[Rfam]
RNA sequence: UAGUAUAAGUAGGCGAAUUGGGACGCAGCAUCAUUGUAGUAUAGUAUUGCUGCGUCCCAAUUCGCCUACUUAUACUAC
Number, nucleotide and partner (000 for none) at each position: 001u000002a000003g075004u074005a073006u072007a071008a000009g069010u068011a067012g066013g065014c064015g063016a062017a061018u060019u059020g058021g057022g000023a055024c054025g053026c052027a051028g050029c049030a048031u000032c000033a000034u000035u000036g000037u000038a000039g000040u000041a000042u000043a000044g000045u000046a000047u000048u030049g029050c028051u027052g026053c025054g024055u023056c000057c021058c020059a019060a018061u017062u016063c015064g014065c013066c012067u011068a010069c009070u000071u007072a006073u005074a004075c003076u000077a000078c000
The record is a 78-nucleotide sequence from Anabarilius grahami, which matches "mir-1421 microRNA precursor family" in Rfam. Its family is annotated with miRNA-mediated post-transcriptional gene silencing and RISC complex in the Gene Ontology. A search with the family's covariance model found it, with a score of 46 bits. Rfam 15.1 lists 110 matches to the family in 14 species. Lineage of the source: Eukaryota > Chordata > Teleostomi > Ostariophysi > Anabarilius.